This 103-nucleotide RNA sequence from Tetracentron sinense belongs to the Rfam family "MIR396 microRNA precursor family". The source organism's lineage runs through Eukaryota, Embryophyta, Tracheophyta, Trochodendraceae and Tetracentron.
RNA sequence: CUUUGUGUUCUUCCACAGCUUUCUUGAACUGCAUCUUUGAAUUAUUCCUGAUGAUGAGGGUGUCGCAAUCGCAGUUCAAUAAAGUUGUGGGAAAAUACGGAGA
Numbered sequence: 001c002u003u004u005g006u007g008u009u010c011u012u013c014c015a016c017a018g019c020u021u022u023c024u025u026g027a028a029c030u031g032c033a034u035c036u037u038u039g040a041a042u043u044a045u046u047c048c049u050g051a052u053g054a055u056g057a058g059g060g061u062g063u064c065g066c067a068a069u070c071g072c073a074g075u076u077c078a079a080u081a082a083a084g085u086u087g088u089g090g091g092a093a094a095a096u097a098c099g100g101a102g103a
Stems, first nucleotide, its partner, number of pairs: 003100005013090003017086006024079004029074004
The base pairs follow the family's consensus structure, which was predicted with WAR.
On this family, see Jones-Rhoades and Bartel, Mol Cell 2004: "Computational identification of plant microRNAs and their targets, including a stress-induced miRNA".